[Rfam]
eL15-Euryarchaeota ribosomal protein leader: a 64-nucleotide RNA from Haladaptatus cibarius.
Lineage of the source: Archaea > Methanobacteriati > Halobacteriales > Haladaptatus > Haladaptatus cibarius.
Rfam classes the family as a cis-regulatory leader.
It is one of the family's seed sequences.
RNA sequence: CCUGCAAUCGCAGGACGGAAUGUGGCAGGCGGGAUUCGUAGAAUCCUGCCCGCUGAACCACUCA
Numbered sequence: 001c002c003u004g005c006a007a008u009c010g011c012a013g014g015a016c017g018g019a020a021u022g023u024g025g026c027a028g029g030c031g032g033g034a035u036u037c038g039u040a041g042a043a044u045c046c047u048g049c050c051c052g053c054u055g056a057a058c059c060a061c062u063c064a
Stems, first nucleotide, its partner, number of pairs: 001014005017059002024054003028050009